The record is a 125-nucleotide RNA from Amazona collaria, which matches "Small nucleolar RNA ACA64" in Rfam. The base pairs follow the family's consensus structure, which was predicted with WAR. The family's RNA type in Rfam is H/ACA-box small nucleolar RNA. For this family Rfam cites "A computational screen for mammalian pseudouridylation guide H/ACA RNAs" (Schattner et al., RNA, 2006). Lineage of the source: Eukaryota > Metazoa > Deuterostomia > Craniata > Amazona. It scores 70 bits against the family's covariance model.

Nucleotides: 125
Stems, first nucleotide, its partner, number of pairs: 008048001010045001013042004019034002022031001065118001067116005077106005085098003
Number, partner (000 for none) and nucleotide at each position: 001000g002000c003000g004000g005000u006000a007000u008048g009000a010045a011000a012000a013042u014041c015040a016039c017000c018000u019034g020033g021000g022031u023000u024000c025000u026000c027000c028000c029000g030000u031022g032000g033020c034019c035000c036000c037000u038000g039016g040015u041014g042013g043000g044000g045010u046000a047000a048008c049000c050000g051000u052000g053000c054000c055000g056000a057000c058000a059000g060000c061000a062000a063000a064000g065118g066000g067116a068115a069114c070113a071112u072000a073000a074000a075000g076000c077106u078105u079104a080103c081102u082000g083000c084000c085098c086097g087096c088000a089000g090000c091000g092000a093000c094000g095000u096087g097086c098085g099000g100000g101000g102081a103080g104079u105078a106077a107000a108000a109000c110000c111000c112071a113070u114069g115068u116067u117000c118065c119000c120000a121000u122000a123000c124000g125000c